RNA: Small nucleolar RNA SNORA71
RNA sequence: ACCUGCAUUCACAGGGAGUCGAGGUCUCACCUGUGACCCGGUCGUUGGUAGUGCAGGGAGAGGAGCUCCAAAAGCGUUUCCCGGGUUCGAUGGGUUCAGUCCUGUCGCUCCCAAACCCUGCAGCCUUCAGGCA
Numbered sequence: 001a002c003c004u005g006c007a008u009u010c011a012c013a014g015g016g017a018g019u020c021g022a023g024g025u026c027u028c029a030c031c032u033g034u035g036a037c038c039c040g041g042u043c044g045u046u047g048g049u050a051g052u053g054c055a056g057g058g059a060g061a062g063g064a065g066c067u068c069c070a071a072a073a074g075c076g077u078u079u080c081c082c083g084g085g086u087u088c089g090a091u092g093g094g095u096u097c098a099g100u101c102c103u104g105u106c107g108c109u110c111c112c113a114a115a116c117c118c119u120g121c122a123g124c125c126u127u128c129a130g131g132c133a
Stems, first nucleotide, its partner, number of pairs: 002057008014046002018042004023038004068130001071127002074124002085116003089112001092108001094106001